[Rfam]
RNA sequence: GGAAAUUUUUUCGGUAUAGAACACUCAUGUCGAUAAAAUGAUUGAAGAAGGCU
Numbered sequence: 001g002g003a004a005a006u007u008u009u010u011u012c013g014g015u016a017u018a019g020a021a022c023a024c025u026c027a028u029g030u031c032g033a034u035a036a037a038a039u040g041a042u043u044g045a046a047g048a049a050g051g052c053u
Stems, first nucleotide, its partner, number of pairs: 011033007